[Rfam]
RNA: Bacteroidetes FopS (family of paralogous sRNAs)
RNA sequence: GUGUUUUUUUCAUAAGUAUUAGAUUUAAGGUUAACAAGGAUUGGCUGCGCGUGAUGCGUAGCCUUUUUUUGUU
Dot-bracket structure: ..........................................(((((((.......)))))))..........
Numbered sequence: 001g002u003g004u005u006u007u008u009u010u011c012a013u014a015a016g017u018a019u020u021a022g023a024u025u026u027a028a029g030g031u032u033a034a035c036a037a038g039g040a041u042u043g044g045c046u047g048c049g050c051g052u053g054a055u056g057c058g059u060a061g062c063c064u065u066u067u068u069u070u071g072u073u
Stems, first nucleotide, its partner, number of pairs: 043063007